[Rfam]
Annotation: This 205-nucleotide RNA sequence from Tepidibacter thalassicus belongs to the Rfam family "raiA RNA". The organism belongs to Tepidibacter thalassicus, within Bacteria. Pairs were carried over by alignment from the consensus structure, which is taken from published work. It scores 194 bits against the family's covariance model.
RNA sequence: AUAUUAUAGGUCUGUGGUUGAAAAUCCAAGCCAGUCGCAGGCAAAAGGAUCCACGUAAGUUAAUUCAAAAACGAAUUAACGAUCAUGGUGCGGCUUAGAAGUAAGUCCUGCCGAUGGAAUCAUCGAGAGGGAUAGUAGUGCGGCAAACCCAAGCGAAAUCUCCAGCAGGCGAGUGUGGGGGCAAAGACCAGGUCAGCUAUAAUAU
Number, nucleotide and partner (000 for none) at each position: 001a205002u204003a203004u202005u201006a200007u199008a198009g197010g000011u000012c196013u195014g194015u190016g189017g188018u187019u186020g000021a000022a000023a000024a000025u000026c000027c000028a176029a000030g174031c041032c000033a095034g094035u093036c092037g091038c090039a089040g000041g031042c000043a000044a000045a000046a000047g000048g000049a000050u088051c087052c000053a000054c000055g083056u000057a000058a000059g080060u079061u078062a077063a076064u075065u074066c000067a000068a000069a000070a000071a000072c000073g000074a065075a064076u063077u062078a061079a060080c059081g000082a000083u055084c000085a000086u183087g051088g050089u039090g038091c037092g036093g035094c034095u033096u000097a000098g000099a000100a000101g000102u000103a000104a000105g000106u000107c169108c168109u167110g166111c165112c125113g124114a123115u122116g121117g000118a000119a000120u000121c116122a115123u114124c113125g112126a000127g000128a000129g162130g161131g160132a159133u000134a000135g000136u000137a000138g154139u153140g000141c000142g000143g000144c000145a000146a000147a000148c000149c000150c000151a000152a000153g139154c138155g000156a000157a000158a000159u132160c131161u130162c129163c000164a000165g111166c110167a109168g108169g107170c000171g000172a000173g000174u030175g000176u028177g000178g000179g000180g000181g000182c000183a086184a000185a000186g019187a018188c017189c016190a015191g000192g000193u000194c014195a013196g012197c009198u008199a007200u006201a005202a004203u003204a002205u001